Shown here is a 76-nucleotide RNA from Microthyrium microscopicum, a member of the family "bZIP non canonical Hac1/Xbp1 intron".
From the family's description: bZIP intron RNA is a non-canonical intron that was first reported in HAC1 gene in yeast and XBP1 gene in Metazoa.
The literature on the family includes a 2011 paper in RNA Biol by Hooks and Griffiths-Jones, "Conserved RNA structures in the non-canonical Hac1/Xbp1 intron".
Rfam 15.1 lists 1,325 matches to the family in 1,320 species.
Nucleotides: 076
Base pairs, nucleotide, nucleotide: 001076002075003074004073005072006071010067011066012065013064014063021039022038023037024036025035026034050062051061052060
Number, partner (000 for none) and nucleotide at each position: 001076c002075c003074a004073g005072g006071a007000c008000a009000u010067u011066g012065a013064g014063c015000u016000g017000a018000c019000a020000c021039a022038a023037c024036a025035a026034u027000c028000u029000g030000c031000a032000g033000c034026a035025u036024u037023g038022u039021u040000g041000u042000g043000c044000u045000c046000u047000u048000u049000a050062g051061g052060c053000c054000c055000g056000c057000a058000g059000u060052g061051u062050c063014g064013c065012u066011c067010a068000a069000u070000u071006u072005c073004c074003u075002g076001g